[Rfam]
RNA: Bacterial RNase P class A
Organism: Halocynthiibacter styelae
RNA sequence: GUGGAUGGCCGGAUGACCGCGGGGCCUUUGGGCCGCGAGGAAAGUCCGGACUCCGGAAAGCAACGGUGCCAGGUAACGCCUGGCCAGGGUAACCUGAGGGAAAGCGCCACAGAGAAUAAACCGCCUGUCAUCUGACAGGUAAGGGUGAAACGGUGGAGUAAGAGCCCACCGCGGGCCUGGCAACAGGACCGGCACGGCAAGCCCCACCGGGAGCAAUGCCAAAUAGGGACCGCGUGCGGCGCAAGUCGCGGGAAUUGCUUCUUCCCAGCAGGUUCGGGUUGGCAGCUAUAGUGUACUGGCGACAGUGCGCAGAGAAGAAUGGUCAUCUAUGGGGGUAACCCCGGGACAGAAUCCGGCUUACAGGCCAUCCACGCAA
Numbered sequence: 001g002u003g004g005a006u007g008g009c010c011g012g013a014u015g016a017c018c019g020c021g022g023g024g025c026c027u028u029u030g031g032g033c034c035g036c037g038a039g040g041a042a043a044g045u046c047c048g049g050a051c052u053c054c055g056g057a058a059a060g061c062a063a064c065g066g067u068g069c070c071a072g073g074u075a076a077c078g079c080c081u082g083g084c085c086a087g088g089g090u091a092a093c094c095u096g097a098g099g100g101a102a103a104g105c106g107c108c109a110c111a112g113a114g115a116a117u118a119a120a121c122c123g124c125c126u127g128u129c130a131u132c133u134g135a136c137a138g139g140u141a142a143g144g145g146u147g148a149a150a151c152g153g154u155g156g157a158g159u160a161a162g163a164g165c166c167c168a169c170c171g172c173g174g175g176c177c178u179g180g181c182a183a184c185a186g187g188a189c190c191g192g193c194a195c196g197g198c199a200a201g202c203c204c205c206a207c208c209g210g211g212a213g214c215a216a217u218g219c220c221a222a223a224u225a226g227g228g229a230c231c232g233c234g235u236g237c238g239g240c241g242c243a244a245g246u247c248g249c250g251g252g253a254a255u256u257g258c259u260u261c262u263u264c265c266c267a268g269c270a271g272g273u274u275c276g277g278g279u280u281g282g283c284a285g286c287u288a289u290a291g292u293g294u295a296c297u298g299g300c301g302a303c304a305g306u307g308c309g310c311a312g313a314g315a316a317g318a319a320u321g322g323u324c325a326u327c328u329a330u331g332g333g334g335g336u337a338a339c340c341c342c343g344g345g346a347c348a349g350a351a352u353c354c355g356g357c358u359u360a361c362a363g364g365c366c367a368u369c370c371a372c373g374c375a376a
Stems, first nucleotide, its partner, number of pairs: 001372010011361001012327007020037002023034004042359003046356005051213004059260002064209005069083005084098001085096004099204002104202002106198003121144002123140007152170005171193001172191003176187004217284004227275005253263002291310008